[Rfam]
RNA sequence: CGCAAUCCCGCCUGACACUCGGUCUCAACCUCUAAAUAUUAAGAAGGUGAGCAAAGUCUCAGGUGUCAUUGCGA
Number, nucleotide and partner (000 for none) at each position: 001c000002g072003c071004a070005a069006u068007c000008c000009c065010g064011c063012c062013u061014g060015a059016c000017a057018c056019u055020c000021g000022g000023u000024c051025u050026c049027a048028a000029c047030c046031u045032c000033u000034a000035a000036a000037u000038a000039u000040u000041a000042a000043g000044a000045a031046g030047g029048u027049g026050a025051g024052c000053a000054a000055a019056g018057u017058c000059u015060c014061a013062g012063g011064u010065g009066u000067c000068a006069u005070u004071g003072c002073g000074a000

mir-87 microRNA precursor family: a 74-nucleotide RNA sequence from Setaria digitata. Rfam links the family to the GO terms RISC complex and miRNA-mediated post-transcriptional gene silencing. The family has 44 seed sequences and 420 matches in Rfam 15.1. Taxonomically the source falls in Setaria (Eukaryota, Protostomia, Nematoda, Spiruromorpha). The family's consensus secondary structure was predicted with RNAalifold.